[Rfam]
RNA sequence: CCAAUAAGUAAUGACGUGACAGACAGAAUGUCACGUUAUCAUGUAUUGUCACUAACACGUUAUUGUCACAUCAUUGAAGGUGAUGACAUAACAAUGAGAUAUCCGUGACAAGACAUGAUAACGUGACACUUCGUUUGUCAUGUCAUUUCUUAACGAAA
Numbered sequence: 001c002c003a004a005u006a007a008g009u010a011a012u013g014a015c016g017u018g019a020c021a022g023a024c025a026g027a028a029u030g031u032c033a034c035g036u037u038a039u040c041a042u043g044u045a046u047u048g049u050c051a052c053u054a055a056c057a058c059g060u061u062a063u064u065g066u067c068a069c070a071u072c073a074u075u076g077a078a079g080g081u082g083a084u085g086a087c088a089u090a091a092c093a094a095u096g097a098g099a100u101a102u103c104c105g106u107g108a109c110a111a112g113a114c115a116u117g118a119u120a121a122c123g124u125g126a127c128a129c130u131u132c133g134u135u136u137g138u139c140a141u142g143u144c145a146u147u148u149c150u151u152a153a154c155g156a157a158a
Stems, first nucleotide, its partner, number of pairs: 002155001005152004010147015026131002029128016046111001048109005055102001057100001071086004